[Rfam]
RNA: Eukaryotic large subunit ribosomal RNA, nucleotides 2961 to 3347
RNA sequence: AAAUUUAUCUUAAUAGUAAUACUACUUAGUAUAAGAGGAACUAUAGUUUUAGAUAAUUAGUUUUUAUAGCUAUCUAACUAGGUAUUACUAUAAAGCUACUAUCUACUAGAUUAUAGCUAAAUACCUCUAAGUUAGAAUCUAUACUAGAAUAGAGUAAUUUCUACCUAUACUAGUUAAAUAUAAAUAGGUCUUUAGCCUAGAACCUUAUUAGGCUAGUAUUAGUAGUCUUAUUAAUAUUAGGGCUACUAGCUAGUAUAUUAUAAUUAUAUAGUAUAUAGAAUUAAAUUCUUUAUAGAUAACUUAGUUAUCUAGCUAGGUUAUAUAAGUAGUUAAGUAGCCUUAUUAUUAUAAGCUACUAAGUAUAAGCCUACUACUAGCUUACUAUAU
Numbered sequence: 001a002a003a004u005u006u007a008u009c010u011u012a013a014u015a016g017u018a019a020u021a022c023u024a025c026u027u028a029g030u031a032u033a034a035g036a037g038g039a040a041c042u043a044u045a046g047u048u049u050u051a052g053a054u055a056a057u058u059a060g061u062u063u064u065u066a067u068a069g070c071u072a073u074c075u076a077a078c079u080a081g082g083u084a085u086u087a088c089u090a091u092a093a094a095g096c097u098a099c100u101a102u103c104u105a106c107u108a109g110a111u112u113a114u115a116g117c118u119a120a121a122u123a124c125c126u127c128u129a130a131g132u133u134a135g136a137a138u139c140u141a142u143a144c145u146a147g148a149a150u151a152g153a154g155u156a157a158u159u160u161c162u163a164c165c166u167a168u169a170c171u172a173g174u175u176a177a178a179u180a181u182a183a184a185u186a187g188g189u190c191u192u193u194a195g196c197c198u199a200g201a202a203c204c205u206u207a208u209u210a211g212g213c214u215a216g217u218a219u220u221a222g223u224a225g226u227c228u229u230a231u232u233a234a235u236a237u238u239a240g241g242g243c244u245a246c247u248a249g250c251u252a253g254u255a256u257a258u259u260a261u262a263a264u265u266a267u268a269u270a271g272u273a274u275a276u277a278g279a280a281u282u283a284a285a286u287u288c289u290u291u292a293u294a295g296a297u298a299a300c301u302u303a304g305u306u307a308u309c310u311a312g313c314u315a316g317g318u319u320a321u322a323u324a325a326g327u328a329g330u331u332a333a334g335u336a337g338c339c340u341u342a343u344u345a346u347u348a349u350a351a352g353c354u355a356c357u358a359a360g361u362a363u364a365a366g367c368c369u370a371c372u373a374c375u376a377g378c379u380u381a382c383u384a385u386a387u
Base pairs, nucleotide, nucleotide: 005157006156007155008154010152011151014146015145016144017143019049021047022046023045024044050105051104052103053102054101058098059097060096065092066091067090068089069088071084072083073082074081075080107141108140109139114134115133116132117131118130165278166277167276168275169274283385285383287381288304289303309377310376311375312374315369316368317367319362320361326356327355328354329353331352334349335348336347337346
Dot-bracket structure: ....((((.((..((((.(.((((...................)))).)(((((...(((....(((((.(((((....)))))...)))))...)))..))))).(((....(((((...........)))))....))).))))....)).)))).......(((((........................................................................................................)))))....(.(.(((.............))....((((..(((.((.....((((.(..((((........))))..)))))....))....)))....))))...).).)..